The family of this 95-nucleotide RNA sequence from Nocardia arthritidis is "SAM riboswitch aptamer (S box leader)". The source organism's lineage runs through Bacteria, Bacillati, Actinomycetota, Actinomycetes and Nocardia. Rfam links the family to the GO term regulation of gene expression.

RNA sequence: ACACCAUCCAGAGCGAUCGAGAGACCUGGCUCGCCGACGUCGCAGCAACCCCCCGGCUCACCGGGUGCGGGUGCUUCCGCCAGGAACGAUGGAGG
Numbered sequence: 001a002c003a004c005c006a007u008c009c010a011g012a013g014c015g016a017u018c019g020a021g022a023g024a025c026c027u028g029g030c031u032c033g034c035c036g037a038c039g040u041c042g043c044a045g046c047a048a049c050c051c052c053c054c055g056g057c058u059c060a061c062c063g064g065g066u067g068c069g070g071g072u073g074c075u076u077c078c079g080c081c082a083g084g085a086a087c088g089a090u091g092g093a094g095g
Base pairs, nucleotide, nucleotide: 002094004092005091006090007089008088013043014042015041016040017039021032022031023030026083027082028081029080044075045074046073047072049071050070051067053065054064079087